[Rfam]
RNA sequence: AUACUAUGAUGGUUGCAUGGUUCAGCAGAUUGAAUUCUGAAGAGACUCACCAUAUGUCUGAUGUAUCU
Number, nucleotide and partner (000 for none) at each position: 001a066002u065003a064004c063005u000006a038007u000008g036009a035010u034011g000012g000013u028014u027015g026016c025017a000018u000019g000020g000021u000022u000023c000024a000025g016026c015027a014028g013029a000030u000031u000032g000033a000034a010035u009036u008037c000038u006039g000040a000041a000042g000043a055044g000045a053046c000047u000048c000049a000050c000051c000052a000053u045054a000055u043056g000057u000058c000059u000060g000061a000062u000063g004064u003065a002066u001067c000068u000
The family of this 68-nucleotide RNA sequence from Carlito syrichta is "Small nucleolar RNA SNORD77". U77 belongs to the C/D family of snoRNAs. It is predicted to guide 2'O-ribose methylation of large 28S rRNA subunit at position A1521. The C/D snoRNAs U44, U47, U74, U75, U76, U78, U79, U80 and U81 share the same host gene as U77 (non-coding). Pairs were carried over by alignment from the consensus structure, which was predicted with RNAalifold. A reference for the family is Tycowski et al. (2004), "Guide RNAs with 5' caps and novel box C/D snoRNA-like domains for modification of snRNAs in metazoa", Curr Biol.